[Rfam]
This 126-nucleotide sequence from Weissella soli belongs to the Rfam family "S10-Clostridia ribosomal protein leader".
For this family Rfam cites "Discovery of 20 novel ribosomal leader candidates in bacteria and archaea" (Eckert and Weinberg, BMC Microbiol, 2020).
NCBI's taxonomy places the organism under Bacteria, Bacillati, Bacilli, Lactobacillaceae, Weissella.
The family's consensus secondary structure is taken from published work.
It scores 38 bits against the family's covariance model.
RNA sequence: UUAGAGCAAUGAUGUAAGAGGUUGCGACACGCCCGGUGGCAUUGUCACGGGGACCACUGCCAUGGAUCCUUGGGAGCACGUCGGUUUUCUUACGGAGUUAGUCUCAUAUUCCAAUAUGGACGAAGG
Numbered sequence: 001u002u003a004g005a006g007c008a009a010u011g012a013u014g015u016a017a018g019a020g021g022u023u024g025c026g027a028c029a030c031g032c033c034c035g036g037u038g039g040c041a042u043u044g045u046c047a048c049g050g051g052g053a054c055c056a057c058u059g060c061c062a063u064g065g066a067u068c069c070u071u072g073g074g075a076g077c078a079c080g081u082c083g084g085u086u087u088u089c090u091u092a093c094g095g096a097g098u099u100a101g102u103c104u105c106a107u108a109u110u111c112c113a114a115u116a117u118g119g120a121c122g123a124a125g126g
Base pairs, nucleotide, nucleotide: 014093015092016091018089019088020087021086025083026082027081028080102125104123105122109120110119111118